[Rfam]
RNA: Lysine riboswitch aptamer
RNA sequence: GAUUCAGAUAGAGGUUGCGUAUUCUAUCAGUAAGAAUUCUGAUGCGACAGGCGCAGGUGAGGAAUUCCGAAAGGACAAUACGCCGAAGGAUGAGCCCGCCUGCAGGGUUUAUACCUGGGCAUACAGUUAAGAGCUGUAUGACUGUCAUCGCAAGAUGGGGAGCUAUCGCACUA
Numbered sequence: 001g002a003u004u005c006a007g008a009u010a011g012a013g014g015u016u017g018c019g020u021a022u023u024c025u026a027u028c029a030g031u032a033a034g035a036a037u038u039c040u041g042a043u044g045c046g047a048c049a050g051g052c053g054c055a056g057g058u059g060a061g062g063a064a065u066u067c068c069g070a071a072a073g074g075a076c077a078a079u080a081c082g083c084c085g086a087a088g089g090a091u092g093a094g095c096c097c098g099c100c101u102g103c104a105g106g107g108u109u110u111a112u113a114c115c116u117g118g119g120c121a122u123a124c125a126g127u128u129a130a131g132a133g134c135u136g137u138a139u140g141a142c143u144g145u146c147a148u149c150g151c152a153a154g155a156u157g158g159g160g161a162g163c164u165a166u167c168g169c170a171c172u173a
Base pairs, nucleotide, nucleotide: 007167008166009165010164011163017083018082019081020080021079022078023077025075034067035066036065037064038063039062040061087116088115089114090112091111092110093109094108095107096106097105117143118142120140121139122138123137124136125135126134127133145158146157147156148155149154